[Rfam]
RNA sequence: CCCUGUAUCGAAAGUGACCGUGGUCUCUGGUUGCCAGGUCAUUGAUACUACAGGGAGAGAAAACUGAAAGUCUUUCCCGUGUUUGCUAGAAAACUUGUUCUUGCCAAACCCUGUAUCUUUCAUACA
Numbered sequence: 001c002c003c004u005g006u007a008u009c010g011a012a013a014g015u016g017a018c019c020g021u022g023g024u025c026u027c028u029g030g031u032u033g034c035c036a037g038g039u040c041a042u043u044g045a046u047a048c049u050a051c052a053g054g055g056a057g058a059g060a061a062a063a064c065u066g067a068a069a070g071u072c073u074u075u076c077c078c079g080u081g082u083u084u085g086c087u088a089g090a091a092a093a094c095u096u097g098u099u100c101u102u103g104c105c106a107a108a109c110c111c112u113g114u115a116u117c118u119u120u121c122a123u124a125c126a
Stems, first nucleotide, its partner, number of pairs: 001055007013043007022035003063123001065122006081109005086103001088101003
RNA: Small nucleolar RNA SNORA71
Organism: Bagarius yarrelli